[Rfam]
RNA sequence: AAGAAAUUUGCGUGGAUCUGACUCUAGUACGAGAGGACCGAGUUGGACUAACCUCUGGUUUAUCAGUUGUGCCGCCAGGUGCAUUGCUGAGUAGCUACGUUGGGAUGGGAUAAGCGCUGAAAGCAUAUAAGCGCGAAACCCGCCACAAGAUUAGAUUUCUUUUAAGGGUCGUGGGAGAUGACCACGUUGAUAGGCUACAGAUGUAAAGGCAGUAAUGUCAUAGUCGAGUAGUACUAAUAGCCCGUAAGC
Numbered sequence: 001a002a003g004a005a006a007u008u009u010g011c012g013u014g015g016a017u018c019u020g021a022c023u024c025u026a027g028u029a030c031g032a033g034a035g036g037a038c039c040g041a042g043u044u045g046g047a048c049u050a051a052c053c054u055c056u057g058g059u060u061u062a063u064c065a066g067u068u069g070u071g072c073c074g075c076c077a078g079g080u081g082c083a084u085u086g087c088u089g090a091g092u093a094g095c096u097a098c099g100u101u102g103g104g105a106u107g108g109g110a111u112a113a114g115c116g117c118u119g120a121a122a123g124c125a126u127a128u129a130a131g132c133g134c135g136a137a138a139c140c141c142g143c144c145a146c147a148a149g150a151u152u153a154g155a156u157u158u159c160u161u162u163u164a165a166g167g168g169u170c171g172u173g174g175g176a177g178a179u180g181a182c183c184a185c186g187u188u189g190a191u192a193g194g195c196u197a198c199a200g201a202u203g204u205a206a207a208g209g210c211a212g213u214a215a216u217g218u219c220a221u222a223g224u225c226g227a228g229u230a231g232u233a234c235u236a237a238u239a240g241c242c243c244g245u246a247a248g249c
Base pairs, nucleotide, nucleotide: 002160003159004158005157006156007155008154009153012146013145014144015143018046019045020044021043022042023041024040048103049102050101051100052099056097057096058095063090064089065088066087067086068083069082070081071080072079073078107141108140109139114134115133116132117131118130166243167242168241169240170186171185172184173183174182191236192235193234194232195231196230197229198228200225201224204220208219209218210217211216
The record is a 249-nucleotide part of an RNA from Avrilella dinanensis, which matches "Bacterial large subunit ribosomal RNA" in Rfam. Its family is annotated with structural constituent of ribosome and ribosome in the Gene Ontology. The family's consensus secondary structure is taken from published work. The source organism's lineage runs through Bacteria, Pseudomonadati, Flavobacteriales, Flavobacteriaceae and Avrilella.